[Rfam]
The family of this 56-nucleotide RNA from Neisseria weaveri is "porB RNA". It scores 42 bits against the family's covariance model.

RNA sequence: CAAUUAUAUUAGCAGCCAUGAAAUCGCUAAAUGCUGCGAUCAAUUCAAAGCCUGGA
Numbered sequence: 001c002a003a004u005u006a007u008a009u010u011a012g013c014a015g016c017c018a019u020g021a022a023a024u025c026g027c028u029a030a031a032u033g034c035u036g037c038g039a040u041c042a043a044u045u046c047a048a049a050g051c052c053u054g055g056a
Base pairs, nucleotide, nucleotide: 023040024039025038026037027036